Shown here is a 105-nucleotide RNA sequence from Psychromonas ingrahamii, a member of the family "t44 RNA".
This family consists of a number of bacterial RNA genes of between 135 and 170 bases in length.
The family's RNA type in Rfam is small RNA.
Rfam's curators put it in the seed alignment.
NCBI's taxonomy places the organism under Bacteria, Pseudomonadati, Pseudomonadota, Gammaproteobacteria, Psychromonas ingrahamii.
RNA sequence: AAGACGUUCUUCAAAUAACACACACACGUCGACACGUCACUCGGGGUGCCUGAUUUCAAAUGAUUUGAAAUUCGGUCGAGUGUAUGGGAUGUGUGGAGGCCUAAC
Numbered sequence: 001a002a003g004a005c006g007u008u009c010u011u012c013a014a015a016u017a018a019c020a021c022a023c024a025c026a027c028g029u030c031g032a033c034a035c036g037u038c039a040c041u042c043g044g045g046g047u048g049c050c051u052g053a054u055u056u057c058a059a060a061u062g063a064u065u066u067g068a069a070a071u072u073c074g075g076u077c078g079a080g081u082g083u084a085u086g087g088g089a090u091g092u093g094u095g096g097a098g099g100c101c102u103a104a105c
Stems, first nucleotide, its partner, number of pairs: 023095008035086003040080004048076003052072005
Dot-bracket structure: ......................((((((((....(((..((((....(((.(((((...........))))).)))))))...))).))))))))..........